[Rfam]
RNA sequence: AGAUCUCUCUGUUCGGCUUCUUUUCGGCGAGCAGCGGCAAUGUCGGCAGGAUAAGUGAACUGCACGCUGUAGUAGAGGUCAGACUGCUCUU
Numbered sequence: 001a002g003a004u005c006u007c008u009c010u011g012u013u014c015g016g017c018u019u020c021u022u023u024u025c026g027g028c029g030a031g032c033a034g035c036g037g038c039a040a041u042g043u044c045g046g047c048a049g050g051a052u053a054a055g056u057g058a059a060c061u062g063c064a065c066g067c068u069g070u071a072g073u074a075g076a077g078g079u080c081a082g083a084c085u086g087c088u089c090u091u
Stems, first nucleotide, its partner, number of pairs: 002084001004083003055067003
RNA: Rhizobiales sRNA Atu_Ti3